Description: The family of this 71-nucleotide RNA is "mir-103/107 microRNA precursor family". Rfam describes the family as follows. This family consists of the mammalian microRNA (miRNA) precursors mir-103 and mir107. Animal miRNAs are transcribed as ~70nt precursors and subsequently processed by the Dicer enzyme to give a ~22nt product. In this case the mature sequence comes from the 3' arm of the precursor. The extents of the hairpin precursors are not generally known and are estimated based on hairpin prediction. On this family, see Ambros, Cell 2001: "microRNAs: tiny regulators with great potential". The family's consensus secondary structure was predicted with RNAalifold. Gene Ontology terms of the family: RISC complex and miRNA-mediated post-transcriptional gene silencing.
Nucleotides: 071
Base pairs, nucleotide, nucleotide: 007057008056009055010054012052013051014050015049016048017047018046019045020044021043023042024041025040026039
Number, partner (000 for none) and nucleotide at each position: 001000u002000u003000c004000a005000g006000c007057u008056u009055c010054u011000u012052u013051a014050c015049a016048g017047u018046g019045c020044u021043g022000c023042c024041u025040u026039g027000u028000u029000g030000c031000a032000u033000u034000c035000a036000u037000g038000u039026c040025a041024a042023g043021c044020a045019g046018c047017a048016u049015u050014g051013u052012a053000c054010a055009g056008g057007g058000c059000u060000a061000u062000g063000a064000a065000a066000g067000a068000g069000c070000a071000g